[Rfam]
RNA sequence: AUAACUUUUUUGUUUAAUUAGAAAUACACUUAAGGAAAUAUAUAGAUCUGUUCGAAUUAAGCAUAUCGAUUCUUAUCAGUUUAAUCUCUGAUAUGUGAUCAACUGAUCAUUUCGAGAUUAUCCUGCUCAAAAGGAUUUGAAAGGGGCUUGUUCCUCACCUAUCACGGAUUGAUCCGGUAUUGCAUCUACCCAUGGGAACAGUCCAUUUACC
Numbered sequence: 001a002u003a004a005c006u007u008u009u010u011u012g013u014u015u016a017a018u019u020a021g022a023a024a025u026a027c028a029c030u031u032a033a034g035g036a037a038a039u040a041u042a043u044a045g046a047u048c049u050g051u052u053c054g055a056a057u058u059a060a061g062c063a064u065a066u067c068g069a070u071u072c073u074u075a076u077c078a079g080u081u082u083a084a085u086c087u088c089u090g091a092u093a094u095g096u097g098a099u100c101a102a103c104u105g106a107u108c109a110u111u112u113c114g115a116g117a118u119u120a121u122c123c124u125g126c127u128c129a130a131a132a133g134g135a136u137u138u139g140a141a142a143g144g145g146g147c148u149u150g151u152u153c154c155u156c157a158c159c160u161a162u163c164a165c166g167g168a169u170u171g172a173u174c175c176g177g178u179a180u181u182g183c184a185u186c187u188a189c190c191c192a193u194g195g196g197a198a199c200a201g202u203c204c205a206u207u208u209a210c211c
Stems, first nucleotide, its partner, number of pairs: 007056003074093006095110006134163003143154004166204006173196004
Rfam assigns this 211-nucleotide sequence from Brugia pahangi to the family "U2 spliceosomal RNA".
U2 is a small nuclear RNA (snRNA) component of the spliceosome (involved in pre-mRNA splicing). Complementary binding between U2 snRNA (in an area lying towards the 5' end but 3' to hairpin I) and the branchpoint sequence (BPS) of the intron results the bulging out of an unpaired adenosine, on the BPS, which initiates a nucleophilic attack at the intronic 5' splice site, thus starting the first of two transesterification reactions that mediate splicing.
A search with the family's covariance model found it, with a score of 54 bits.
Rfam 15.1 lists 71,512 matches to the family in 2,642 species.
Rfam classes the family as a spliceosomal small nuclear RNA.